[Rfam]
Nucleotides: 503
Stems, first nucleotide, its partner, number of pairs: 007389002010386001012384001014382001019325002023321003028316002037311002041307001045305007054233001057230008066107003072103001074102004079097001081096002084093001117222002122217002130209001132205001134203002138199001140197001144195001150191001154189005160183001161178002165174001167172001234296001240290006251281002254278001256277003260271001262269001330341002353377001355375003363369001391431002394428002397425001399423003403418003407415001437476004442471004447465006478501001480497003484494004
Number, partner (000 for none) and nucleotide at each position: 001000g002000u003000g004000a005000u006000c007389g008388u009000c010386g011000c012384g013000u014382c015000c016000c017000a018000c019325g020324g021000c022000g023321c024320g025319c026000u027000g028316u029315c030000c031000c032000c033000g034000a035000g036000g037311a038310g039000g040000a041307g042000g043000u044000c045305g046304g047303c048302g049301c050300c051299g052000a053000a054233g055000a056000a057230c058229u059228c060227g061226c062225c063224g064223u065000c066107g067106c068105c069000g070000a071000g072103g073000a074102c075101g076100c077099c078000g079097a080000g081096c082095g083000u084093c085000a086000c087000c088000g089000g090000g091000u092000c093084g094000c095082c096081g097079u098000a099077g100076g101075c102074g103072c104000c105068g106067g107066c108000c109000u110000u111000c112000g113000u114000g115000c116000a117222g118221c119000g120000g121000g122217c123216c124000u125000u126000g127000c128000c129000g130209u131000g132205g133000g134203c135202g136000a137000c138199g139000a140197g141000c142000a143000c144195g145000a146000c147000c148000c149000g150191g151000u152000c153000g154189g155188c156187c157186g158185g159000c160183u161178g162177g163000c164000c165174c166000u167172c168000c169000c170000g171000g172167g173000c174165g175000a176000g177162c178161u179000g180000c181000u182000c183160g184000c185158c186157c187156g188155g189154c190000g191150c192000g193000a194000a195144c196000u197140c198000c199138u200000g201000c202135u203134g204000g205132c206000g207000g208000a209130a210000g211000c212000u213000g214000c215000c216123g217122g218000c219000g220000a221118g222117c223064g224063u225062g226061g227060c228059g229058a230057g231000c232000a233054c234296g235000c236000c237000g238000u239000c240290g241289u242288c243287g244286u245285c246000g247000a248000a249000g250000c251281c252280g253000c254278g255000c256277a257276g258275c259000g260271c261000g262269g263000g264000c265000a266000g267000c268000u269262c270000g271260g272000u273000c274000a275258g276257c277256u278254c279000c280252c281251g282000c283000g284000g285245g286244a287243c288242g289241a290240c291000c292000c293000g294000c295000a296234c297000g298000g299051c300050g301049g302048c303047g304046c305045c306000g307041u308000c309000g310038u311037u312000g313000a314000g315029g316028a317000a318000c319025g320024u321023g322000a323000c324020c325019c326000g327000g328000c329000c330341g331340u332000c333000a334000c335000c336000g337000a338000c339000c340331a341330c342000a343000u344000a345000g346000g347000a348000c349000a350000g351000u352000c353377g354000c355375c356374g357373g358000u359000u360000g361000a362000c363369c364000c365000g366000g367000u368000a369363g370000a371000c372000g373357c374356c375355g376000c377353c378000c379000u380000u381000c382014g383000u384012c385000u386010c387000c388008a389007c390000c391431c392430a393000c394428g395427g396000c397425a398000g399423c400422a401421u402000c403418c404417g405416c406000a407415g408000c409000a410000g411000c412000c413000a414000c415407c416405g417404c418403g419000a420000g421401g422400u423399g424000a425397u426000c427395u428394c429000c430392u431391g432000c433000a434000u435000c436000u437476g438475c439474g440473g441000c442471g443470c444469g445468g446000u447465c448464u449463u450462c451461g452460u453000c454000g455000u456000g457000g458000u459000g460452g461451c462450g463449a464448g465447g466000g467000u468445c469444c470443g471442c472000g473440c474439c475438g476437c477000c478501g479000c480497c481496g482495u483000a484494c485493u486492c487491a488000g489000g490000c491487u492486g493485a494484g495482a496481c497480g498000c499000u500000c501478c502000a503000g
The record is a 503-nucleotide RNA sequence from Virgisporangium ochraceum, which matches "Saccharopolyspora sRNA 350" in Rfam. NCBI's taxonomy places the organism under Bacteria, Bacillati, Actinomycetes, Micromonosporales, Virgisporangium. Rfam classes the family as an antisense RNA. The family's consensus secondary structure was predicted with RNAfold.